[Rfam]
RNA sequence: AAUUAUGUUCCUAGGAACAAAGAAAAGCAUAUCUAUUCUAUACCUGAUAAGUACCAAUACGCAAUGGGA
Numbered sequence: 001a002a003u004u005a006u007g008u009u010c011c012u013a014g015g016a017a018c019a020a021a022g023a024a025a026a027g028c029a030u031a032u033c034u035a036u037u038c039u040a041u042a043c044c045u046g047a048u049a050a051g052u053a054c055c056a057a058u059a060c061g062c063a064a065u066g067g068g069a
Stems, first nucleotide, its partner, number of pairs: 003022002006019005043068003051060003
A member of the RNA family "Plastid-clpP 5UTR RNA" from Kingdonia uniflora, 69 nucleotides long.
A search with the family's covariance model found it, with a score of 88 bits.
On this family, see Richter et al., Plant Commun 2023: "Retrograde signaling in plants: A critical review focusing on the GUN pathway and beyond".
Rfam describes the family as follows. Plastid clpP is a non-coding RNA (ncRNA) recognised in plastids. It was found in the prime untranslated region (5UTR) of a protease complex subunit (clpP) in plastids, suggesting a posible cis-regulatory function.